[Rfam]
RNA sequence: CUCUUAUCGAGAGAGGUGGAGGGAUGUGCCCUAUGAAGCCCGGCAACCGUCACAUGUUGAAAUGGUGCCAAUUCACACAAAGUGUAAAAACUUUGAUAGAUGAGAG
Numbered sequence: 001c002u003c004u005u006a007u008c009g010a011g012a013g014a015g016g017u018g019g020a021g022g023g024a025u026g027u028g029c030c031c032u033a034u035g036a037a038g039c040c041c042g043g044c045a046a047c048c049g050u051c052a053c054a055u056g057u058u059g060a061a062a063u064g065g066u067g068c069c070a071a072u073u074c075a076c077a078c079a080a081a082g083u084g085u086a087a088a089a090a091c092u093u094u095g096a097u098a099g100a101u102g103a104g105a106g
Stems, first nucleotide, its partner, number of pairs: 001106008013041001015040003021031003025077004042069004047065002050060003073098001078095006

Annotation: SAM riboswitch aptamer (S box leader): a 106-nucleotide sequence from Lederbergia citrea. The match comes from Rfam's covariance-model search (90 bits). The organism belongs to Lederbergia, within Bacteria. Pairs were carried over by alignment from the consensus structure, which is taken from published work.